Shown here is a 280-nucleotide sequence from Nannospalax galili, a member of the family "Mason-Pfizer monkey virus packaging signal". The organism belongs to Nannospalax, within Eukaryota. A search with the family's covariance model found it, with a score of 174 bits. A reference for the family is Mustafa et al. (2004), "Mutational analysis of the predicted secondary RNA structure of the Mason-Pfizer monkey virus packaging signal", Virus Res. From the family's description: This family represents a group of sequences that are related to the Mason-Pfizer monkey virus (MPMV) packaging signal. Rfam links the family to the GO term viral genome packaging.
RNA sequence: UGGCGCCCAACGUGGGGCUUGGAUACUGGGGACAACAUGAGAGAGACGACGAAGAAGAAGGGGUGCGCACCCGCUAAAUCUCAAGCACUUCGGAGACUCGCCAUGGGAGCCUGCCGCGACCGAACCGAAGGUAAGUUGUGUCGUCCAAUCAUGGGGCAGGAAUUAAGCCAGCAUCAGAUUUAUGUCAUACAGUUAAGAGAAGCUCUGAAGACAAGAGGAGUAAAGGUUAUGACUGAGGAUUUAUUUCAUUUCUUUGAUUUUGUGAAGGACUUUUGUCCCU
Numbered sequence: 001u002g003g004c005g006c007c008c009a010a011c012g013u014g015g016g017g018c019u020u021g022g023a024u025a026c027u028g029g030g031g032a033c034a035a036c037a038u039g040a041g042a043g044a045g046a047c048g049a050c051g052a053a054g055a056a057g058a059a060g061g062g063g064u065g066c067g068c069a070c071c072c073g074c075u076a077a078a079u080c081u082c083a084a085g086c087a088c089u090u091c092g093g094a095g096a097c098u099c100g101c102c103a104u105g106g107g108a109g110c111c112u113g114c115c116g117c118g119a120c121c122g123a124a125c126c127g128a129a130g131g132u133a134a135g136u137u138g139u140g141u142c143g144u145c146c147a148a149u150c151a152u153g154g155g156g157c158a159g160g161a162a163u164u165a166a167g168c169c170a171g172c173a174u175c176a177g178a179u180u181u182a183u184g185u186c187a188u189a190c191a192g193u194u195a196a197g198a199g200a201a202g203c204u205c206u207g208a209a210g211a212c213a214a215g216a217g218g219a220g221u222a223a224a225g226g227u228u229a230u231g232a233c234u235g236a237g238g239a240u241u242u243a244u245u246u247c248a249u250u251u252c253u254u255u256g257a258u259u260u261u262g263u264g265a266a267g268g269a270c271u272u273u274u275g276u277c278c279c280u
Base pairs, nucleotide, nucleotide: 006031007030008029012026013025014024036048038046087132088131089130090128091127098124099122100121102118104116105115106114139158140157141156144155145154146153147152164207165206167203168202215255216254217253218252219251220250224242225241226240227239228238265280267278268277269276270275